Rfam assigns this 90-nucleotide sequence from Selenihalanaerobacter shriftii to the family "c-di-GMP-I riboswitch aptamer". The match comes from Rfam's covariance-model search (74 bits). The source organism's lineage runs through Bacteria, Bacillota, Halanaerobiales, Halobacteroidaceae and Selenihalanaerobacter.
[Rfam]
RNA sequence: UCUCGAUAAAGGCAAACUUGUCGAAAGGCAGGGACGCAAAGCUACUAGGUCUAUGGUAUACAAGUAUACUAUGAUUGCUAGGCUACCUAC
Numbered sequence: 001u002c003u004c005g006a007u008a009a010a011g012g013c014a015a016a017c018u019u020g021u022c023g024a025a026a027g028g029c030a031g032g033g034a035c036g037c038a039a040a041g042c043u044a045c046u047a048g049g050u051c052u053a054u055g056g057u058a059u060a061c062a063a064g065u066a067u068a069c070u071a072u073g074a075u076u077g078c079u080a081g082g083c084u085a086c087c088u089a090c
Stems, first nucleotide, its partner, number of pairs: 012037002017032006040084004046080003049075003056069004

Pairs were carried over by alignment from the consensus structure, which is taken from published work.